[Rfam]
RNA sequence: UUGUAAGAUAGGAUAUUUAUGCACACACAAGUAAUUCGGAGCCGUGGUAUGAUUAUAUCAUCGCAUCCGUUUGAUAUGCAAUGCGAAAGAACCUGACACGGUAUCAGGUUCUUUUUUUA
Dot-bracket structure: .................................(((.(((..((.................))..)...)).))).........((((((((((((.......))))))))))))....
Rfam assigns this 119-nucleotide RNA from Brevibacillus panacihumi to the family "Bacillus sRNA ncr1015". It scores 79 bits against the family's covariance model.